Annotation: The record is a 37-nucleotide sequence from Chlorogloea sp. CCALA 695, which matches "CRISPR RNA direct repeat element" in Rfam. Lineage of the source: Bacteria > Oscillatoriophycideae > Chroococcales > Entophysalidaceae > Chlorogloea. Rfam 15.1 lists 201 matches to the family in 33 species. Gene Ontology term of the family: defense response.

RNA sequence: CUUUCAACCCGCCUAGUACCUGGAGGGUUGUUGUGAC
Numbered sequence: 001c002u003u004u005c006a007a008c009c010c011g012c013c014u015a016g017u018a019c020c021u022g023g024a025g026g027g028u029u030g031u032u033g034u035g036a037c
Stems, first nucleotide, its partner, number of pairs: 005033004009027002013023003